[Rfam]
RNA sequence: GGAUUCCUUUGGGGCAGGGUGUAAAUCCCGACCGACGGUGAAGGAUGUGCUCGCAUCCUAAGUCCGUGACCCGGCGCAUGUAUAUGCAAUGGUUGAUUUGGUGUAAUUCCAAAACCGACAGUUAAAGUCUGGAUGGGAAAAGGAAAAG
Numbered sequence: 001g002g003a004u005u006c007c008u009u010u011g012g013g014g015c016a017g018g019g020u021g022u023a024a025a026u027c028c029c030g031a032c033c034g035a036c037g038g039u040g041a042a043g044g045a046u047g048u049g050c051u052c053g054c055a056u057c058c059u060a061a062g063u064c065c066g067u068g069a070c071c072c073g074g075c076g077c078a079u080g081u082a083u084a085u086g087c088a089a090u091g092g093u094u095g096a097u098u099u100g101g102u103g104u105a106a107u108u109c110c111a112a113a114a115c116c117g118a119c120a121g122u123u124a125a126a127g128u129c130u131g132g133a134u135g136g137g138a139a140a141a142g143g144a145a146a147a148g
Base pairs, nucleotide, nucleotide: 004145005144006143007142008141009140010139017029018028019027031128032127033117034116035067036066037065038064062115063114071092072091097113098112099111100110101109119131120130121129
RNA: FMN riboswitch aptamer (RFN element)
Organism: Aquibacillus koreensis